[Rfam]
RNA sequence: AGCAGCCCGUCAAAUUCGGUGCCACUCUCUGUGGUUGGUACUGGCCCAGUUGGCUGCUACAGAAACCUCUGUAGUUCCUGAGCCCCAGCUCUCCCUGACCGAGCACUGGGCACGAGAACAACCUACAGACACUU
Numbered sequence: 001a002g003c004a005g006c007c008c009g010u011c012a013a014a015u016u017c018g019g020u021g022c023c024a025c026u027c028u029c030u031g032u033g034g035u036u037g038g039u040a041c042u043g044g045c046c047c048a049g050u051u052g053g054c055u056g057c058u059a060c061a062g063a064a065a066c067c068u069c070u071g072u073a074g075u076u077c078c079u080g081a082g083c084c085c086c087a088g089c090u091c092u093c094c095c096u097g098a099c100c101g102a103g104c105a106c107u108g109g110g111c112a113c114g115a116g117a118a119c120a121a122c123c124u125a126c127a128g129a130c131a132c133u134u
Stems, first nucleotide, its partner, number of pairs: 002057004017043008026034002071126004075121002083110003087107002
Description
Rfam assigns this 134-nucleotide RNA sequence from Tinamus guttatus to the family "Small nucleolar RNA SNORA5". By type it is an H/ACA-box small nucleolar RNA. Rfam describes the family as follows. ACA5 is a member of the H/ACA class of snoRNA that guide the sites of modification of uridines to pseudouridines.